Background
The record is a 100-nucleotide RNA sequence from Paenibacillus stellifer, which matches "Purine riboswitch aptamer" in Rfam. Gene Ontology term of the family: purine nucleobase biosynthetic process. NCBI's taxonomy places the organism under Bacteria, Bacillota, Bacilli, Paenibacillaceae, Paenibacillus. On this family, see Mandal et al., Cell 2003: "Riboswitches Control Fundamental Biochemical Pathways in Bacillus subtilis and Other Bacteria". Riboswitches are metabolite binding domains within certain messenger RNAs that serve as precision sensors for their corresponding targets.
[Rfam]
RNA sequence: GGCUUAAAAAAUCUUGCUGUUCGUAUAUCCUCAGAAAUACGGUUUGAGGGUCUCUACAGGGAACCGUAAAUUCCCGGCUACGGAUGGGCGCCCUCUUUGG
Numbered sequence: 001g002g003c004u005u006a007a008a009a010a011a012u013c014u015u016g017c018u019g020u021u022c023g024u025a026u027a028u029c030c031u032c033a034g035a036a037a038u039a040c041g042g043u044u045u046g047a048g049g050g051u052c053u054c055u056a057c058a059g060g061g062a063a064c065c066g067u068a069a070a071u072u073c074c075c076g077g078c079u080a081c082g083g084a085u086g087g088g089c090g091c092c093c094u095c096u097u098u099g100g
Stems, first nucleotide, its partner, number of pairs: 018086008029049007059075005
The match comes from Rfam's covariance-model search (64 bits). Pairs were carried over by alignment from the consensus structure, which is taken from published work.